[Rfam]
RNA sequence: CCAGUCUUUUAUUUUCGUUCCUUGCUUCCUCUGGACGACUGGCCAACACUGGAAGCUGAAUAGUCCGUAAGGAGCAAAUAAUG
Dot-bracket structure: ................(((((((((((((..(((........))).....))))))............)))))))........
Numbered sequence: 001c002c003a004g005u006c007u008u009u010u011a012u013u014u015u016c017g018u019u020c021c022u023u024g025c026u027u028c029c030u031c032u033g034g035a036c037g038a039c040u041g042g043c044c045a046a047c048a049c050u051g052g053a054a055g056c057u058g059a060a061u062a063g064u065c066c067g068u069a070a071g072g073a074g075c076a077a078a079u080a081a082u083g
Stems, first nucleotide, its partner, number of pairs: 017075007024056006032045003